[Rfam]
RNA sequence: AUUACUCACUCUCCCUCAAGGGCUUCUGGAAUUGCCGGAGGCGAAGUCAGAAGUUCUUGGGGCGAGUGAAUAAUAA
Numbered sequence: 001a002u003u004a005c006u007c008a009c010u011c012u013c014c015c016u017c018a019a020g021g022g023c024u025u026c027u028g029g030a031a032u033u034g035c036c037g038g039a040g041g042c043g044a045a046g047u048c049a050g051a052a053g054u055u056c057u058u059g060g061g062g063c064g065a066g067u068g069a070a071u072a073a074u075a076a
Stems, first nucleotide, its partner, number of pairs: 006069006013062003017059010